RNA sequence: CUCUUAUUAAGAGAGGUGGAGGGACGUGCCCUAUGAAACCCGGCAACCGUCAGCAUAGCUGAAAUUGGUGCCAAUUCACUCAAAGCCGCAGCGCUUUGAAAGAUGAGAG
Numbered sequence: 001c002u003c004u005u006a007u008u009a010a011g012a013g014a015g016g017u018g019g020a021g022g023g024a025c026g027u028g029c030c031c032u033a034u035g036a037a038a039c040c041c042g043g044c045a046a047c048c049g050u051c052a053g054c055a056u057a058g059c060u061g062a063a064a065u066u067g068g069u070g071c072c073a074a075u076u077c078a079c080u081c082a083a084a085g086c087c088g089c090a091g092c093g094c095u096u097u098g099a100a101a102g103a104u105g106a107g108a109g
Base pairs, nucleotide, nucleotide: 001109002108003107004106005105006104007103008102013041015040016039017038021031022030023029026079027078028077042072043071044070045069047068048067050062051061052060076101081098082097083096084095085094086093
SAM riboswitch aptamer (S box leader): a 109-nucleotide sequence from Bacillus safensis. Taxonomically the source falls in Bacillus (Bacteria, Bacillati, Bacillota, Bacillaceae). About the family: The SAM riboswitch is found upstream of a number of genes which code for proteins involved in methionine or cysteine biosynthesis in Gram-positive bacteria. A search with the family's covariance model found it, with a score of 84 bits.